[Rfam]
RNA: MIR845_2 microRNA precursor family
RNA sequence: AGAAAGCAAAUUAACUAUCCCUAAGGCCAUGAGAUAAACAAAAACCUUGCAAAAACAAGUUAGCACACUCUAGAAUGGUUCUAGCAUGAUUACUAACCUAUGACUUUGAUACUAGUUGAAGGGAAAUACCU
Numbered sequence: 001a002g003a004a005a006g007c008a009a010a011u012u013a014a015c016u017a018u019c020c021c022u023a024a025g026g027c028c029a030u031g032a033g034a035u036a037a038a039c040a041a042a043a044a045c046c047u048u049g050c051a052a053a054a055a056c057a058a059g060u061u062a063g064c065a066c067a068c069u070c071u072a073g074a075a076u077g078g079u080u081c082u083a084g085c086a087u088g089a090u091u092a093c094u095a096a097c098c099u100a101u102g103a104c105u106u107u108g109a110u111a112c113u114a115g116u117u118g119a120a121g122g123g124a125a126a127u128a129c130c131u
Base pairs, nucleotide, nucleotide: 011119012118013117014116015115016114022108023107024106025105026104028102029101030100031099033097048086049085053080054079056077057076060073061072062071063070